[Rfam]
RNA: SAM riboswitch aptamer (S box leader)
Organism: Lysinibacillus odysseyi
RNA sequence: AUCUUAUCAAGAGAAGCAGAGGGAUAUGGCCCGAUGAAGCUUCAGCAACCUCUAGCGCAGCUAGAAAGGUGCUAAUUCCAGCAAGGUGUAUGCCUUGAAAGAUAAGAG
Numbered sequence: 001a002u003c004u005u006a007u008c009a010a011g012a013g014a015a016g017c018a019g020a021g022g023g024a025u026a027u028g029g030c031c032c033g034a035u036g037a038a039g040c041u042u043c044a045g046c047a048a049c050c051u052c053u054a055g056c057g058c059a060g061c062u063a064g065a066a067a068g069g070u071g072c073u074a075a076u077u078c079c080a081g082c083a084a085g086g087u088g089u090a091u092g093c094c095u096u097g098a099a100a101g102a103u104a105a106g107a108g
Stems, first nucleotide, its partner, number of pairs: 002107007013043005021032003027080003044073004049069002051065004077100001082097006